[Rfam]
RNA sequence: AUGGAACACUUGUGGCAAAAAUCCAUCCAUGGUUCUUGAAUAAGCAUAGACUAACAGUGUGAAAGGGUCCUCCUCCCUCACACUCCACCACUUCCAACAGUUUGUUUAGGCUUAGCUAUUGGCUUCUCUAAUCACCAAGGGAUAUGCAUACAAAAAAACAUUCUCUUUGACUAACAGAAGCAUAUAAGCAUUAUUCUCCAUUGGAGCAAAGGCUUUCUUUGGCUAUAGCCUAGGCAAGCCGGCAAGUCAUCAUAAAAAGGCUUGGACUUCAUUAGGGGUCCU
Numbered sequence: 001a002u003g004g005a006a007c008a009c010u011u012g013u014g015g016c017a018a019a020a021a022u023c024c025a026u027c028c029a030u031g032g033u034u035c036u037u038g039a040a041u042a043a044g045c046a047u048a049g050a051c052u053a054a055c056a057g058u059g060u061g062a063a064a065g066g067g068u069c070c071u072c073c074u075c076c077c078u079c080a081c082a083c084u085c086c087a088c089c090a091c092u093u094c095c096a097a098c099a100g101u102u103u104g105u106u107u108a109g110g111c112u113u114a115g116c117u118a119u120u121g122g123c124u125u126c127u128c129u130a131a132u133c134a135c136c137a138a139g140g141g142a143u144a145u146g147c148a149u150a151c152a153a154a155a156a157a158a159c160a161u162u163c164u165c166u167u168u169g170a171c172u173a174a175c176a177g178a179a180g181c182a183u184a185u186a187a188g189c190a191u192u193a194u195u196c197u198c199c200a201u202u203g204g205a206g207c208a209a210a211g212g213c214u215u216u217c218u219u220u221g222g223c224u225a226u227a228g229c230c231u232a233g234g235c236a237a238g239c240c241g242g243c244a245a246g247u248c249a250u251c252a253u254a255a256a257a258a259g260g261c262u263u264g265g266a267c268u269u270c271a272u273u274a275g276g277g278g279u280c281c282u
Stems, first nucleotide, its partner, number of pairs: 059088002100239006119227001265280005
The record is a 282-nucleotide RNA sequence from Lupinus angustifolius, which matches "Early nodulin 40" in Rfam. NCBI's taxonomy places the organism under Eukaryota, eudicotyledons, Gunneridae, core genistoids, Lupinus. Rfam classes the family as a non-coding RNA gene. The literature on the family includes a 2007 paper in Nucleic Acids Res by Gultyaev and Roussis, "Identification of conserved secondary structures and expansion segments in enod40 RNAs reveals new enod40 homologues in plants".